[Rfam]
RNA sequence: GCGCGUUCUCGGGGCGGGGUGGAAGUCCCCACCGGCGGUGACGGCGUUCCGGGCGACCGGAGAGCCGAAGCCCGCGAGCGCCCUCCGGGCCGGCGGUCCGGAGGGGUCAGCAGAUUCGGUGCGAUUCCGAAGCCGACGGUCACAGUCCGGAUGGAAGAGAACGGAA
Numbered sequence: 001g002c003g004c005g006u007u008c009u010c011g012g013g014g015c016g017g018g019g020u021g022g023a024a025g026u027c028c029c030c031a032c033c034g035g036c037g038g039u040g041a042c043g044g045c046g047u048u049c050c051g052g053g054c055g056a057c058c059g060g061a062g063a064g065c066c067g068a069a070g071c072c073c074g075c076g077a078g079c080g081c082c083c084u085c086c087g088g089g090c091c092g093g094c095g096g097u098c099c100g101g102a103g104g105g106g107u108c109a110g111c112a113g114a115u116u117c118g119g120u121g122c123g124a125u126u127c128c129g130a131a132g133c134c135g136a137c138g139g140u141c142a143c144a145g146u147c148c149g150g151a152u153g154g155a156a157g158a159g160a161a162c163g164g165a166a
Stems, first nucleotide, its partner, number of pairs: 004163007017029003031146002033135002035075004070133002078111002115131005137149003

The record is a 166-nucleotide RNA sequence from Tistlia consotensis, which matches "FMN riboswitch aptamer (RFN element)" in Rfam. The family's consensus secondary structure is taken from published work. The organism belongs to Tistlia consotensis, within Bacteria.